[Rfam]
RNA: ASdes TB sRNA
Organism: Mycobacterium intermedium
RNA sequence: AGCUCGUACGGGUCGACCGCACGGGUCACCACCAGGUAGUCGCGUAGCGCGAUUCCGUGCCGGUUCUC
Numbered sequence: 001a002g003c004u005c006g007u008a009c010g011g012g013u014c015g016a017c018c019g020c021a022c023g024g025g026u027c028a029c030c031a032c033c034a035g036g037u038a039g040u041c042g043c044g045u046a047g048c049g050c051g052a053u054u055c056c057g058u059g060c061c062g063g064u065u066c067u068c
Stems, first nucleotide, its partner, number of pairs: 004063003011030003015027004035056002038053001040052005